Nucleotides: 075
Base pairs, nucleotide, nucleotide: 001042002041003040004039005038006037007036023035024034025033049061050060051059052058053057
Number, partner (000 for none) and nucleotide at each position: 001042g002041u003040c004039c005038a006037a007036c008000a009000a010000a011000a012000u013000c014000c015000a016000a017000c018000c019000c020000c021000u022000c023035a024034c025033u026000u027000c028000c029000c030000c031000g032000u033025a034024g035023u036007g037006u038005u039004g040003g041002a042001c043000g044000g045000g046000c047000a048000a049061c050060g051059u052058c053057a054000c055000c056000u057053u058052g059051g060050c061049g062000g063000c064000u065000a066000a067000g068000a069000a070000g071000g072000g073000c074000u075000c
A member of the RNA family "HDV ribozyme from F. prausnitzii" from Rotaria sordida, 75 nucleotides long. On this family, see Webb et al., Science 2009: "Widespread occurrence of self-cleaving ribozymes".